Shown here is a 90-nucleotide RNA sequence from Pseudoalteromonas ruthenica, a member of the family "c-di-GMP-I riboswitch aptamer". The family's consensus secondary structure is taken from published work. The match comes from Rfam's covariance-model search (46 bits). The organism belongs to Pseudoalteromonas, within Bacteria.
Nucleotides: 090
Stems, first nucleotide, its partner, number of pairs: 012038002017033001019030004042083003046080003049075003056069004
Number, partner (000 for none) and nucleotide at each position: 001000u002000c003000a004000g005000a006000a007000u008000a009000a010000a011000g012038g013037c014000a015000c016000g017033g018000u019030g020029c021028u022027c023000g024000a025000a026000a027022g028021a029020g030019u031000u032000u033017c034000c035000a036000c037013g038012c039000a040000a041000a042083g043082c044081u045000c046080c047079a048078g049075g050074u051073c052000u053000a054000a055000g056069g057068u058067c059066a060000a061000u062000a063000c064000a065000u066059u067058g068057g069056c070000u071000a072000u073051g074050a075049u076000g077000g078048c079047u080046g081044a082043g083042c084000c085000g086000c087000u088000u089000c090000c